[Rfam]
RNA sequence: GGCAAAAUGAUGAGUUUCUUGUAUCUGAAAAUGGUGUGGAUUGCCAUAUCACAUAGGUCUUCAAAGUUCUCUGAUUGCU
Numbered sequence: 001g002g003c004a005a006a007a008u009g010a011u012g013a014g015u016u017u018c019u020u021g022u023a024u025c026u027g028a029a030a031a032u033g034g035u036g037u038g039g040a041u042u043g044c045c046a047u048a049u050c051a052c053a054u055a056g057g058u059c060u061u062c063a064a065a066g067u068u069c070u071c072u073g074a075u076u077g078c079u
Base pairs, nucleotide, nucleotide: 001079002078003077004076005075

Source information
Rfam assigns this 79-nucleotide RNA sequence from Eucalyptus grandis to the family "Small nucleolar RNA R160". Rfam 15.1 lists 799 matches to the family in 221 species. About the family: snoR160 is a C/D box small nucleolar RNA, which acts as a methylation guide for 25S ribosomal RNA in plants. snoR160 has been alternatively named snoZ270 in rice. By type it is a C/D-box small nucleolar RNA. The base pairs follow the family's consensus structure.